[Rfam]
RNA sequence: ACAUAAAUCAGAGGCGCAGUCAUAUGGUAGUCCAGGAUGUGAAGAAAUGGAACGUUCGAUGCCGAAGACAAAGGAUAUGUCUGCCGAAAGAAUGCACAGGUUCCUGUCUGUAUUCUUGGUGACUGGGGGUACACCUUUGUCACUGCCAUAAAUAUAUGGAGAGCUGUUUAUGUA
Numbered sequence: 001a002c003a004u005a006a007a008u009c010a011g012a013g014g015c016g017c018a019g020u021c022a023u024a025u026g027g028u029a030g031u032c033c034a035g036g037a038u039g040u041g042a043a044g045a046a047a048u049g050g051a052a053c054g055u056u057c058g059a060u061g062c063c064g065a066a067g068a069c070a071a072a073g074g075a076u077a078u079g080u081c082u083g084c085c086g087a088a089a090g091a092a093u094g095c096a097c098a099g100g101u102u103c104c105u106g107u108c109u110g111u112a113u114u115c116u117u118g119g120u121g122a123c124u125g126g127g128g129g130u131a132c133a134c135c136u137u138u139g140u141c142a143c144u145g146c147c148a149u150a151a152a153u154a155u156a157u158g159g160a161g162a163g164c165u166g167u168u169u170a171u172g173u174a
Stems, first nucleotide, its partner, number of pairs: 006169002009166003016084004021079004030069003033064001035063001088117009098107001118144006125137004146159005